The family of this 94-nucleotide RNA sequence is "Small nucleolar RNA R64/Z200 family". A reference for the family is Marker et al. (2002), "Experimental RNomics: identification of 140 candidates for small non-messenger RNAs in the plant Arabidopsis thaliana", Curr Biol. The base pairs follow the family's consensus structure, which was predicted with PFOLD.

[Rfam]
RNA sequence: UUUCUGCAGUGAAGAAUGAAGAAGAAAAUUCACAUGUUAGACUCUAGAGAUUUUUAUGAUCAAUGAGAAUGGCAACUUAUUCACUAAGCAGAAA
Numbered sequence: 001u002u003u004c005u006g007c008a009g010u011g012a013a014g015a016a017u018g019a020a021g022a023a024g025a026a027a028a029u030u031c032a033c034a035u036g037u038u039a040g041a042c043u044c045u046a047g048a049g050a051u052u053u054u055u056a057u058g059a060u061c062a063a064u065g066a067g068a069a070u071g072g073c074a075a076c077u078u079a080u081u082c083a084c085u086a087a088g089c090a091g092a093a094a
Stems, first nucleotide, its partner, number of pairs: 001094007049061004
Overview: The sequence is in the family's curated seed alignment.